Overview: The record is a 120-nucleotide RNA from Aegilops tauschii, which matches "Small nucleolar RNA SNORD14" in Rfam. The family's RNA type in Rfam is C/D-box small nucleolar RNA. Rfam's curators write: U14 small nucleolar RNA (U14 snoRNA) is required for early cleavages of eukaryotic precursor rRNAs. In yeasts, this molecule possess a stem-loop region (known as the Y-domain) which is essential for function. A search with the family's covariance model found it, with a score of 87 bits.
RNA sequence: UGCAAAUGAUGAUAAAUUUAAGGCUUGUUUCUCAAACAUUCGCAGUUGCCGCCUAAGAGAUUUCGCCCUGCCAGGCUUGAGAGAUGAUGCUGCUAGAUUCUUCCUUGGAUGUCUGAUGCA
Numbered sequence: 001u002g003c004a005a006a007u008g009a010u011g012a013u014a015a016a017u018u019u020a021a022g023g024c025u026u027g028u029u030u031c032u033c034a035a036a037c038a039u040u041c042g043c044a045g046u047u048g049c050c051g052c053c054u055a056a057g058a059g060a061u062u063u064c065g066c067c068c069u070g071c072c073a074g075g076c077u078u079g080a081g082a083g084a085u086g087a088u089g090c091u092g093c094u095a096g097a098u099u100c101u102u103c104c105u106u107g108g109a110u111g112u113c114u115g116a117u118g119c120a
Stems, first nucleotide, its partner, number of pairs: 001120004060085005
Dot-bracket structure: ((((.......................................................(((((................)))))...............................))))